[Rfam]
RNA sequence: UGGUAGAUGCACCCUGAUUCAAUUCCCCGGCACUCACUGAGCGUUGGGGAAUUUUUUU
Dot-bracket structure: .(((......)))..........((((((((.((.....)).))))))))........
Numbered sequence: 001u002g003g004u005a006g007a008u009g010c011a012c013c014c015u016g017a018u019u020c021a022a023u024u025c026c027c028c029g030g031c032a033c034u035c036a037c038u039g040a041g042c043g044u045u046g047g048g049g050a051a052u053u054u055u056u057u058u
Stems, first nucleotide, its partner, number of pairs: 002013003024050008033041002
A member of the RNA family "Nitrogen stress-induced RNA 1" from Microcoleus sp. FACHB-1515, 58 nucleotides long. The pairing is the family consensus, mapped onto this sequence. It scores 58 bits against the family's covariance model. By type it is a small RNA. The source organism's lineage runs through Bacteria, Cyanophyceae, Oscillatoriales, Microcoleaceae and Microcoleus. A reference for the family is Ionescu et al. (2010), "Heterocyst-specific transcription of NsiR1, a non-coding RNA encoded in a tandem array of direct repeats in cyanobacteria", J Mol Biol.